[Rfam]
RNA sequence: AUCCUCCAGUUUGCUUUCCCAUUGGAUCCGAACACUAGUCUUGGGGUUGUAAAGGAGGAAAAGUAUUGCUGAAGCUGGCCUCACAGCCUUACAGUCUUGUAUAUAGCAUGUGGGCUAGUUUCAAACAGGG
Number, nucleotide and partner (000 for none) at each position: 001a000002u000003c058004c057005u056006c055007c054008a000009g000010u000011u000012u000013g000014c000015u000016u000017u000018c000019c046020c045021a000022u044023u043024g000025g040026a039027u038028c000029c000030g000031a000032a000033c000034a000035c000036u000037a000038g027039u026040c025041u000042u000043g023044g022045g020046g019047u000048u000049g000050u000051a000052a000053a000054g007055g006056a005057g004058g003059a000060a000061a000062a000063g000064u000065a000066u000067u000068g000069c000070u000071g000072a000073a000074g000075c118076u117077g116078g115079c114080c113081u112082c000083a000084c000085a000086g000087c000088c000089u000090u108091a000092c106093a000094g000095u000096c000097u000098u000099g000100u000101a000102u000103a000104u000105a000106g092107c000108a090109u000110g000111u000112g081113g080114g079115c078116u077117a076118g075119u000120u000121u000122c000123a000124a000125a000126c000127a000128g000129g000130g000
The record is a 130-nucleotide sequence from Heterocephalus glaber, which matches "Small nucleolar RNA SNORA61" in Rfam. The family's RNA type in Rfam is H/ACA-box small nucleolar RNA. Pairs were carried over by alignment from the consensus structure, which was predicted with PFOLD. Lineage of the source: Eukaryota > Deuterostomia > Teleostomi > Rodentia > Heterocephalus. The family has 25 seed sequences and 881 matches in Rfam 15.1. About the family: ACA61 is a member of the H/ACA class of snoRNA that guide the sites of modification of uridines to pseudouridines.